Notes:
This 66-nucleotide RNA sequence belongs to the Rfam family "L2-Alphaproteobacteria ribosomal protein leader". By type it is a cis-regulatory leader.
[Rfam]
Nucleotides: 066
Stems, first nucleotide, its partner, number of pairs: 001018004006014003026046007
Number, partner (000 for none) and nucleotide at each position: 001018g002017c003016g004015g005000a006014c007013c008012u009000a010000c011000g012008g013007g014006g015004c016003c017002g018001c019000a020000u021000a022000a023000c024000c025000a026046u027045c028044a029043g030042u031041c032040u033000c034000c035000a036000c037000a038000a039000g040032a041031g042030g043029c044028u045027g046026a047000g048000c049000u050000a051000a052000a053000a054000c055000g056000g057000a058000a059000g060000a061000c062000a063000g064000a065000a066000a